[Rfam]
RNA sequence: CUAUUAAGUGAUAACGUGGCAAAUGAAGUGUCACGUCAUCAUGCCUUAUCAGUGACAUGUCAUUGAAGGUAAUGAUGUGACAAUGAGGUGUUUGUGACAAAAUGUGAUGAUGUGACACUCCGUUUGUCAUAUCAUCCCUUAAUGGAA
Numbered sequence: 001c002u003a004u005u006a007a008g009u010g011a012u013a014a015c016g017u018g019g020c021a022a023a024u025g026a027a028g029u030g031u032c033a034c035g036u037c038a039u040c041a042u043g044c045c046u047u048a049u050c051a052g053u054g055a056c057a058u059g060u061c062a063u064u065g066a067a068g069g070u071a072a073u074g075a076u077g078u079g080a081c082a083a084u085g086a087g088g089u090g091u092u093u094g095u096g097a098c099a100a101a102a103u104g105u106g107a108u109g110a111u112g113u114g115a116c117a118c119u120c121c122g123u124u125u126g127u128c129a130u131a132u133c134a135u136c137c138c139u140u141a142a143u144g145g146a147a
Base pairs, nucleotide, nucleotide: 001145002144003143004142005141006140007139008138010136011135012134014132016130017129018128019127020126021125022124023123024122025121027119028118029117030116031115032114033113034112035111036110037109038108039107040106041105042104043103046100049097050096051095054092055091056090057089058088059076060075061074062073063072
The family of this 147-nucleotide RNA sequence from Glycine max is "MIR4371 microRNA precursor family". Gene Ontology terms of the family: RISC complex and miRNA-mediated post-transcriptional gene silencing. The source organism's lineage runs through Eukaryota, rosids, fabids, Fabaceae and Glycine subgen. Soja. The base pairs follow the family's consensus structure, which was predicted with RNAalifold. Its Rfam clan is "MIR4387 microRNA precursor clan".